Shown here is a 62-nucleotide sequence from Paenibacillus sp. FSL H7-0737, a member of the family "Fluoride riboswitch aptamer (crcB RNA motif)". The base pairs follow the family's consensus structure, which is taken from published work. Lineage of the source: Bacteria > Bacillati > Caryophanales > Paenibacillaceae > Paenibacillus. A reference for the family is Ren et al. (2012), "Fluoride ion encapsulation by Mg2+ ions and phosphates in a fluoride riboswitch", Nature. Rfam 15.1 lists 2,293 matches to the family in 1,982 species.
RNA sequence: AUAUAACAAGGCGAUGGAGUUCGCCACAACCGUCUCUUCAGACUAAUGACUCCUACCAGAGU
Numbered sequence: 001a002u003a004u005a006a007c008a009a010g011g012c013g014a015u016g017g018a019g020u021u022c023g024c025c026a027c028a029a030c031c032g033u034c035u036c037u038u039c040a041g042a043c044u045a046a047u048g049a050c051u052c053c054u055a056c057c058a059g060a061g062u
Stems, first nucleotide, its partner, number of pairs: 010025004016053006032043004